Description: Shown here is a 264-nucleotide sequence from Coprococcus eutactus, a member of the family "Bacterial large signal recognition particle RNA". About the family: The signal recognition particle (SRP) is a universally conserved ribonucleoprotein involved in the co-translational targeting of proteins to membranes. It scores 200 bits against the family's covariance model. The family's consensus secondary structure is taken from published work. The family's RNA type in Rfam is non-coding RNA gene. Lineage of the source: Bacteria > Bacillati > Clostridia > Lachnospiraceae > Coprococcus.
[Rfam]
RNA sequence: CCAUGCAACCGGGGAGGUAGCGGCGCCCUGUACCUGCAAUCCGCUAUAGCAGGGGUGAUGGUCUUCCUGAGGGGUGGCCGCUGUAGGGCUGCCCUCAGUAAGUGAUGUUGAUGUCUGGGUCUCGCGCAACAGGAAUCUUCGAACCGUGUCAGGUCGGAGACGAAGCAGCACUAAGGGGAAUCUCCUGUGUGCCGUGAGGGUGCCUGGGCUGAGUUAACUGCUGAGGUAACGUCUAUGGUGACGCUUCGAAGGAAGAUCGCAUGG
Numbered sequence: 001c002c003a004u005g006c007a008a009c010c011g012g013g014g015a016g017g018u019a020g021c022g023g024c025g026c027c028c029u030g031u032a033c034c035u036g037c038a039a040u041c042c043g044c045u046a047u048a049g050c051a052g053g054g055g056u057g058a059u060g061g062u063c064u065u066c067c068u069g070a071g072g073g074g075u076g077g078c079c080g081c082u083g084u085a086g087g088g089c090u091g092c093c094c095u096c097a098g099u100a101a102g103u104g105a106u107g108u109u110g111a112u113g114u115c116u117g118g119g120u121c122u123c124g125c126g127c128a129a130c131a132g133g134a135a136u137c138u139u140c141g142a143a144c145c146g147u148g149u150c151a152g153g154u155c156g157g158a159g160a161c162g163a164a165g166c167a168g169c170a171c172u173a174a175g176g177g178g179a180a181u182c183u184c185c186u187g188u189g190u191g192c193c194g195u196g197a198g199g200g201u202g203c204c205u206g207g208g209c210u211g212a213g214u215u216a217a218c219u220g221c222u223g224a225g226g227u228a229a230c231g232u233c234u235a236u237g238g239u240g241a242c243g244c245u246u247c248g249a250a251g252g253a254a255g256a257u258c259g260c261a262u263g264g
Base pairs, nucleotide, nucleotide: 001264002263003262004261005260006259008056009055010054011029012028013027014026016024018022033053034052035051036050037049062256063255064254065253066252067251068250071247072246073245074244075243077242079240080239081238082237083236084235085234086233090228091227094225095224096223097222098221099220102218103217104215105214106213113209114208115207116206117205118204119203120202121198122197123196124195125194126193127189128188130187131186132185133184134183136179137178138177139176140175146171147170148169149168154163155162156161